This 106-nucleotide RNA sequence from Eubacteriaceae bacterium CHKCI005 belongs to the Rfam family "SAM riboswitch aptamer (S box leader)".
[Rfam]
RNA sequence: UCCUUAUCAAGAGCGGCUGAGGGAUCAGGCCCUGUGAAGCCCGGCAACCUGCCUUGUGUAUAGGCAAGGUGCUAAGUCCUGCGGUGUGAUAGCCGGAAGAUGAGGC
Numbered sequence: 001u002c003c004u005u006a007u008c009a010a011g012a013g014c015g016g017c018u019g020a021g022g023g024a025u026c027a028g029g030c031c032c033u034g035u036g037a038a039g040c041c042c043g044g045c046a047a048c049c050u051g052c053c054u055u056g057u058g059u060a061u062a063g064g065c066a067a068g069g070u071g072c073u074a075a076g077u078c079c080u081g082c083g084g085u086g087u088g089a090u091a092g093c094c095g096g097a098a099g100a101u102g103a104g105g106c
Base pairs, nucleotide, nucleotide: 002105003104004103005102006101007100008099013042015041016040017039021032022031023030026081027080028079029078043073044072045071046070048069049068051065052064053063054062077098082095083094084093085092
Dot-bracket structure: .(((((((....(.(((...(((..[[[[)))......))))((((.((.((((.......))))..))))))...(]]]]((((......))))..)))))))).